[Rfam]
RNA: Group II catalytic intron D1-D4-3
RNA sequence: UCCGUCGUGAGGCGGAAUCUGAAGGAAGUCGGCGGCAAAUCUCCGGUCUGAGGAAUACGAAUCACAUAUAAGGCUAAUAUUCGUUGGAUGAGCUUGCUUAACAAAGUGAAGUCCAUACUGCCGAAGGCGAGUAGGAGUAAAUGUGGCAGAUAGAUGGAGAGGAAGAUAGCGUU
Numbered sequence: 001u002c003c004g005u006c007g008u009g010a011g012g013c014g015g016a017a018u019c020u021g022a023a024g025g026a027a028g029u030c031g032g033c034g035g036c037a038a039a040u041c042u043c044c045g046g047u048c049u050g051a052g053g054a055a056u057a058c059g060a061a062u063c064a065c066a067u068a069u070a071a072g073g074c075u076a077a078u079a080u081u082c083g084u085u086g087g088a089u090g091a092g093c094u095u096g097c098u099u100a101a102c103a104a105a106g107u108g109a110a111g112u113c114c115a116u117a118c119u120g121c122c123g124a125a126g127g128c129g130a131g132u133a134g135g136a137g138u139a140a141a142u143g144u145g146g147c148a149g150a151u152a153g154a155u156g157g158a159g160a161g162g163a164a165g166a167u168a169g170c171g172u173u
Stems, first nucleotide, its partner, number of pairs: 001016006028173001030171002036165001040160006046151005062146006073138003078133006086114004092107004